DUF3800-VII RNA: an 87-nucleotide sequence.
RNA sequence: UGCAGGUGUGCGUAGGAAUAAGCUCAGGUCGUCUUUUGACGGCAACUCCAAGUGGGUGGGAUCCUGAGUCCUAGGACCUGCAUUUUU
Numbered sequence: 001u002g003c004a005g006g007u008g009u010g011c012g013u014a015g016g017a018a019u020a021a022g023c024u025c026a027g028g029u030c031g032u033c034u035u036u037u038g039a040c041g042g043c044a045a046c047u048c049c050a051a052g053u054g055g056g057u058g059g060g061a062u063c064c065u066g067a068g069u070c071c072u073a074g075g076a077c078c079u080g081c082a083u084u085u086u087u
Stems, first nucleotide, its partner, number of pairs: 001082007011074001013073004022069006028043006046056003